[Rfam]
RNA sequence: GGGGGUGUCAAGGUUUCGACGGGGGAAGGAAACGAAGUGCCGCAUGCCGGAGUGGGCAGGCUCCGUAAAAAAGCCCAACUUAACUAAACGCAGACUCUGACGUUAGUUACGCAUUAGCAGCUUAAUAGCUGCUACGUCCUGUCACCCAUCGCCUGUGUGGCUGUCGGGACGUUAAUUGAAGCGGGCUGGUUUUGAAGAAGGACUGUGGCUUCGAAACGAGACUAAAAGCAGACUCGCCUGAUCCGUAUCCUGUCUGUAGGAGCCUGAUCAAGGUUAAAUUUAAACUACAGACUAAGCAUGUAGACGCCUUACGCGGAUAGCUUUCGGACGCGGGUUCGAUUCCCGCCACCUCCACCA
Number, nucleotide and partner (000 for none) at each position: 001g353002g352003g351004g350005g349006u348007g347008u000009c000010a000011a000012g000013g000014u000015u000016u000017c000018g000019a000020c326021g325022g324023g323024g322025g321026a000027a000028g318029g000030a000031a000032a000033c313034g312035a000036a310037g309038u000039g307040c306041c000042g000043c300044a299045u298046g297047c296048c065049g064050g063051a062052g061053u077054g076055g075056g074057c073058a000059g000060g000061c052062u051063c050064c049065g048066u000067a000068a000069a000070a000071a000072a000073g057074c056075c055076c054077a053078a000079c000080u000081u000082a000083a000084c000085u000086a000087a000088a000089c000090g000091c000092a000093g000094a000095c000096u000097c000098u000099g000100a000101c000102g000103u000104u000105a000106g000107u000108u000109a000110c000111g000112c000113a000114u000115u134116a133117g132118c131119a130120g129121c128122u000123u000124a000125a000126u000127a000128g121129c120130u119131g118132c117133u116134a115135c171136g170137u169138c168139c167140u166141g165142u000143c163144a162145c000146c160147c159148a158149u157150c000151g186152c185153c184154u183155g182156u181157g149158u148159g147160g146161c000162u144163g143164u000165c141166g140167g139168g138169a137170c136171g135172u000173u000174a000175a000176u000177u000178g000179a000180a000181g156182c155183g154184g153185g152186c151187u000188g000189g217190u216191u215192u214193u213194g212195a211196a210197g209198a000199a000200g233201g000202a000203c000204u000205g000206u000207g000208g000209c197210u196211u195212c194213g193214a192215a191216a190217c189218g000219a000220g000221a000222c000223u000224a000225a000226a000227a000228g000229c000230a000231g000232a000233c200234u000235c000236g274237c273238c272239u271240g000241a000242u000243c000244c266245g265246u000247a000248u261249c260250c259251u000252g292253u291254c290255u289256g000257u000258a000259g250260g249261a248262g000263c000264c000265u245266g244267a000268u000269c000270a000271a239272g238273g237274u236275u000276a000277a000278a000279u000280u000281u000282a000283a000284a000285c000286u000287a000288c000289a255290g254291a253292c252293u000294a000295a000296g047297c046298a045299u044300g043301u000302a000303g000304a000305c000306g040307c039308c000309u037310u036311a000312c034313g033314c000315g000316g000317a000318u028319a000320g000321c025322u024323u023324u022325c021326g020327g000328a000329c000330g346331c345332g344333g343334g342335u000336u000337c000338g000339a000340u000341u000342c334343c333344c332345g331346c330347c007348a006349c005350c004351u003352c002353c001354a000355c000356c000357a000
Notes:
A member of the RNA family "transfer-messenger RNA" from Pelovirga terrestris, 357 nucleotides long. The match comes from Rfam's covariance-model search (197 bits). The organism belongs to Pelovirga, within Bacteria. Pairs were carried over by alignment from the consensus structure, which is taken from published work. Clan: tRNA clan.